[Rfam]
RNA: c-di-GMP-I riboswitch aptamer
RNA sequence: CUUAGAUAAUAGCAAACUCAUUGAAAAAUGAGGACGCAAAGCUGCGGGCCUAAUGAAUAAUUUCUAUGGUAGCCGGGUUGCCGAA
Numbered sequence: 001c002u003u004a005g006a007u008a009a010u011a012g013c014a015a016a017c018u019c020a021u022u023g024a025a026a027a028a029u030g031a032g033g034a035c036g037c038a039a040a041g042c043u044g045c046g047g048g049c050c051u052a053a054u055g056a057a058u059a060a061u062u063u064c065u066a067u068g069g070u071a072g073c074c075g076g077g078u079u080g081c082c083g084a085a
Stems, first nucleotide, its partner, number of pairs: 012037002017032006040079004045075003048070003055064003